[Rfam]
RNA sequence: ACGGAAGCUUGGCUAGGCCAAGGCCGAGCCGGAAGAGAAGGCUCGGUUCUCCCGAACCAGGCUACCCAGCACGGAUCCCGGCACCCACGCGGAGCACAUGCCGCGGAAUAGGCAAAAGUGUUGCGGGCCUGCGUAAUUGCGAUAGCGGACGGCCACGACGGCCCCUUGGGUGGGGUCGCAGCCGGAGCGCACCGACAAGACGCCGAGGCCACCCACGCAACCUACCGGAGCACGCAUGGUAACCGGUGUCCGUGCUAGCGGGCGGCGAGCCGAAUCAGUUCGGAACGUCGCCCGCUUUACUUU
Numbered sequence: 001a002c003g004g005a006a007g008c009u010u011g012g013c014u015a016g017g018c019c020a021a022g023g024c025c026g027a028g029c030c031g032g033a034a035g036a037g038a039a040g041g042c043u044c045g046g047u048u049c050u051c052c053c054g055a056a057c058c059a060g061g062c063u064a065c066c067c068a069g070c071a072c073g074g075a076u077c078c079c080g081g082c083a084c085c086c087a088c089g090c091g092g093a094g095c096a097c098a099u100g101c102c103g104c105g106g107a108a109u110a111g112g113c114a115a116a117a118g119u120g121u122u123g124c125g126g127g128c129c130u131g132c133g134u135a136a137u138u139g140c141g142a143u144a145g146c147g148g149a150c151g152g153c154c155a156c157g158a159c160g161g162c163c164c165c166u167u168g169g170g171u172g173g174g175g176u177c178g179c180a181g182c183c184g185g186a187g188c189g190c191a192c193c194g195a196c197a198a199g200a201c202g203c204c205g206a207g208g209c210c211a212c213c214c215a216c217g218c219a220a221c222c223u224a225c226c227g228g229a230g231c232a233c234g235c236a237u238g239g240u241a242a243c244c245g246g247u248g249u250c251c252g253u254g255c256u257a258g259c260g261g262g263c264g265g266c267g268a269g270c271c272g273a274a275u276c277a278g279u280u281c282g283g284a285a286c287g288u289c290g291c292c293c294g295c296u297u298u299a300c301u302u303u
Stems, first nucleotide, its partner, number of pairs: 003066002006063007016053002021050002025045006068256008078246004085239003089235003094231002099114004120221006126210005131203004137197001140194002145190003150184004159178007258295010270283003
RNA: Mycobacterium smegmatis small RNA 1